[Rfam]
RNA sequence: GUUCGUCUUCAGGGCAGGGUGUGAUUCCCGACCGGCGGUGAUAGUCCGCGACCCGCAUUGUGCGGCUGACUUGGUGCAAAUCCAAGACCGAUAGUUAAAGUCUAGAUGGAAGAAGAUAGAG
Numbered sequence: 001g002u003u004c005g006u007c008u009u010c011a012g013g014g015c016a017g018g019g020u021g022u023g024a025u026u027c028c029c030g031a032c033c034g035g036c037g038g039u040g041a042u043a044g045u046c047c048g049c050g051a052c053c054c055g056c057a058u059u060g061u062g063c064g065g066c067u068g069a070c071u072u073g074g075u076g077c078a079a080a081u082c083c084a085a086g087a088c089c090g091a092u093a094g095u096u097a098a099a100g101u102c103u104a105g106a107u108g109g110a111a112g113a114a115g116a117u118a119g120a121g
Base pairs, nucleotide, nucleotide: 003119005117006116007115008114009113010112017029018028019027031101032100033090034089035049036048037047038046044088045087053065054064070086071085072084073083074082092104093103094102
Source information: This 121-nucleotide RNA sequence from Agrilactobacillus composti belongs to the Rfam family "FMN riboswitch aptamer (RFN element)". It scores 109 bits against the family's covariance model.